[Rfam]
The family of this 115-nucleotide sequence from Ligilactobacillus equi is "FMN riboswitch aptamer (RFN element)".

RNA sequence: GUUUAUCUUCAGGGCAGGGUGUAACUCCCGACCGGCGGUGAUAGUCCGCGAACCUUCGGGUUGAUUUGGUGCAAUUCCAAAACCGACAGUAAAGUCUGGAUGAGAGAAGGUAGGA
Numbered sequence: 001g002u003u004u005a006u007c008u009u010c011a012g013g014g015c016a017g018g019g020u021g022u023a024a025c026u027c028c029c030g031a032c033c034g035g036c037g038g039u040g041a042u043a044g045u046c047c048g049c050g051a052a053c054c055u056u057c058g059g060g061u062u063g064a065u066u067u068g069g070u071g072c073a074a075u076u077c078c079a080a081a082a083c084c085g086a087c088a089g090u091a092a093a094g095u096c097u098g099g100a101u102g103a104g105a106g107a108a109g110g111u112a113g114g115a
Stems, first nucleotide, its partner, number of pairs: 003113008017029003031095002033085002035049004044083002052061003065081005087098003
The family's consensus secondary structure is taken from published work. It scores 119 bits against the family's covariance model. Taxonomically the source falls in Ligilactobacillus equi (Bacteria, Bacillati, Bacilli, Lactobacillaceae).